Rfam assigns this 116-nucleotide RNA sequence from Allomesorhizobium alhagi to the family "Alphaproteobacterial ar14". The match comes from Rfam's covariance-model search (73 bits). NCBI's taxonomy places the organism under Bacteria, Pseudomonadati, Alphaproteobacteria, Hyphomicrobiales, Allomesorhizobium alhagi. The family's RNA type in Rfam is small RNA.
RNA sequence: AGCUGUCGGCCAUCUACUCCUCCCAGAUGCGAUGCCGGCUCACAGCGAACUCACCUCCUCCCGAGUUCGUCCAAAUAGAGAGCCCGCUGCACCUCCUCCCGCAGCGGGCUUUUUGU
Numbered sequence: 001a002g003c004u005g006u007c008g009g010c011c012a013u014c015u016a017c018u019c020c021u022c023c024c025a026g027a028u029g030c031g032a033u034g035c036c037g038g039c040u041c042a043c044a045g046c047g048a049a050c051u052c053a054c055c056u057c058c059u060c061c062c063g064a065g066u067u068c069g070u071c072c073a074a075a076u077a078g079a080g081a082g083c084c085c086g087c088u089g090c091a092c093c094u095c096c097u098c099c100c101g102c103a104g105c106g107g108g109c110u111u112u113u114u115g116u
Base pairs, nucleotide, nucleotide: 007037008036009035011029012028013027042070046069047068048067049066050065080111081110082109083108084107085106086105087104088103089102090101

Overview:
Rfam 15.1 lists 784 matches to the family in 332 species.